Source information
The record is a 119-nucleotide RNA from Sporomusa ovata, which matches "Molybdenum/Tungsten riboswitch aptamer (Moco RNA motif)" in Rfam. The source organism's lineage runs through Bacteria, Bacillati, Negativicutes, Sporomusaceae and Sporomusa. The family's consensus secondary structure is taken from published work.

[Rfam]
RNA sequence: AAGUUUCAUCAGCUCCGAGUUGUUUAUUCUAAACCUAUUGAGGUAUGAUAGACAACCGAUGGGUGCAGUAGGAAACGACUGUGCCUCCCCUUUUGGAAAGGAGCGUUACCAUUAAUAUU
Number, nucleotide and partner (000 for none) at each position: 001a000002a000003g113004u000005u000006u000007c000008a000009u000010c000011a000012g104013c103014u102015c101016c100017g000018a000019g056020u055021u054022g053023u052024u051025u050026a000027u000028u048029c047030u000031a000032a000033a044034c043035c042036u041037a000038u000039u000040g000041a036042g035043g034044u033045a000046u000047g029048a028049u000050a025051g024052a023053c022054a021055a020056c019057c000058g000059a000060u000061g086062g085063g084064u083065g082066c081067a080068g079069u078070a000071g076072g000073a000074a000075a000076c071077g000078a069079c068080u067081g066082u065083g064084c063085c062086u061087c096088c095089c000090c000091u000092u000093u000094u000095g088096g087097a000098a000099a000100g016101g015102a014103g013104c012105g000106u000107u000108a000109c000110c000111a000112u000113u003114a000115a000116u000117a000118u000119u000